[Rfam]
RNA sequence: GGUGCGAUCGGAAUCUGCAGCGAUGCGGAGCCCUGUGGCAGGGGCGUGCCAUACACCAACCGAAAGUAAUGGAGA
Numbered sequence: 001g002g003u004g005c006g007a008u009c010g011g012a013a014u015c016u017g018c019a020g021c022g023a024u025g026c027g028g029a030g031c032c033c034u035g036u037g038g039c040a041g042g043g044g045c046g047u048g049c050c051a052u053a054c055a056c057c058a059a060c061c062g063a064a065a066g067u068a069a070u071g072g073a074g075a
Base pairs, nucleotide, nucleotide: 001050002049003048004047005046006045014029015028016027017026018025019024061066